[Rfam]
MIR397 microRNA precursor family: a 103-nucleotide RNA from Acer yangbiense. Rfam 15.1 lists 496 matches to the family in 218 species. Taxonomically the source falls in Acer (Eukaryota, Viridiplantae, Gunneridae, Sapindaceae). Gene Ontology terms of the family: RISC complex and miRNA-mediated post-transcriptional gene silencing. The literature on the family includes a 2009 paper in BMC Genomics by Mica et al., "High throughput approaches reveal splicing of primary microRNA transcripts and tissue specific expression of mature microRNAs in Vitis vinifera". The family's consensus secondary structure was predicted with WAR.
RNA sequence: GCGAAAAACAUGAUUGAAUGCAGCGCCGGUGAAAUUGAAAUUGAAAUCGAUCAAAUACAAUCCGAAUAUAAUUUCAUCAACGCUGCACUCAAUGACGUUUUUC
Numbered sequence: 001g002c003g004a005a006a007a008a009c010a011u012g013a014u015u016g017a018a019u020g021c022a023g024c025g026c027c028g029g030u031g032a033a034a035u036u037g038a039a040a041u042u043g044a045a046a047u048c049g050a051u052c053a054a055a056u057a058c059a060a061u062c063c064g065a066a067u068a069u070a071a072u073u074u075c076a077u078c079a080a081c082g083c084u085g086c087a088c089u090c091a092a093u094g095a096c097g098u099u100u101u102u103c
Stems, first nucleotide, its partner, number of pairs: 006100004011095001013093005019087007028078001030076003